[Rfam]
RNA sequence: UUGUGCGGGGAUCGCCCUCCACCAGCGUGUUACGCCCGUGGGGGCAAAACCG
Dot-bracket structure: ...............(((((((..((((...))))..)))))))........
Shown here is a 52-nucleotide RNA sequence from Sulfitobacter brevis, a member of the family "ffh sRNA". On this family, see Meyer et al., BMC Genomics 2009: "Identification of candidate structured RNAs in the marine organism 'Candidatus Pelagibacter ubique'". It is annotated as a small RNA.